RNA sequence: AAGGUUCUUGCUUCAACAGUGUUUGAACGGAGCCCU
Numbered sequence: 001a002a003g004g005u006u007c008u009u010g011c012u013u014c015a016a017c018a019g020u021g022u023u024u025g026a027a028c029g030g031a032g033c034c035c036u
Stems, first nucleotide, its partner, number of pairs: 001036001003034006010028001012027005017021001
RNA: Iron response element I
Organism: Polypterus senegalus